[Rfam]
RNA: ylbH leader
RNA sequence: AUAAAAAAGAGCCCGCGGGCUUGGCCAGCGAGCUGAUGGUAUUCGCCAUUGGCGAAUACUGAAUGGGAGAGGAGAAACCGGAGGAAGAGCUUAUGGGGAAACGUAAGUCUUCUCCGCGG
Number, nucleotide and partner (000 for none) at each position: 001a000002u000003a000004a000005a000006a000007a000008a000009g000010a000011g000012c032013c000014c030015g029016c028017g000018g026019g025020c024021u000022u000023g000024g020025c019026c018027a000028g016029c015030g014031a000032g012033c067034u066035g000036a064037u063038g000039g000040u000041a000042u056043u055044c054045g053046c052047c051048a000049u000050u000051g047052g046053c045054g044055a043056a042057u000058a000059c000060u000061g000062a000063a037064u036065g000066g034067g033068a000069g000070a000071g000072g000073a000074g000075a000076a000077a000078c000079c116080g115081g114082a113083g000084g112085a111086a110087g109088a000089g108090c107091u106092u105093a104094u000095g000096g000097g000098g000099a000100a000101a000102c000103g000104u093105a092106a091107g090108u089109c087110u086111u085112c084113u082114c081115c080116g079117c000118g000119g000